A member of the RNA family "Small nucleolar RNA SNORA13" from Odontophorus gujanensis, 132 nucleotides long. The source organism's lineage runs through Eukaryota, Sauria, Archelosauria, Coelurosauria and Odontophorus. Rfam's curators write: ACA13 is a member of the H/ACA class of snoRNA that guide the sites of modification of uridines to pseudouridines.
RNA sequence: UGCCUUUGUGUUGCCCGUUCAUUGCUCUCUAAAAUGAACAUGGUGUCAAAAAAGGCAAACAGGAAUUCUUGCUCAGACUGUGAAAGGGGCUGGCUGUUUGCCAUCCUCCUCCCUGUUUUGGCAAGGACAGAA
Numbered sequence: 001u002g003c004c005u006u007u008g009u010g011u012u013g014c015c016c017g018u019u020c021a022u023u024g025c026u027c028u029c030u031a032a033a034a035u036g037a038a039c040a041u042g043g044u045g046u047c048a049a050a051a052a053a054g055g056c057a058a059a060c061a062g063g064a065a066u067u068c069u070u071g072c073u074c075a076g077a078c079u080g081u082g083a084a085a086g087g088g089g090c091u092g093g094c095u096g097u098u099u100g101c102c103a104u105c106c107u108c109c110u111c112c113c114u115g116u117u118u119u120g121g122c123a124a125g126g127a128c129a130g131a132a
Base pairs, nucleotide, nucleotide: 002056003055004054005053006052007051009048010047012045013044014043015042017039018038019037020036021035022034023033068125069124070123071122073121074120075119076118077117082116084114086112087111088109089108093102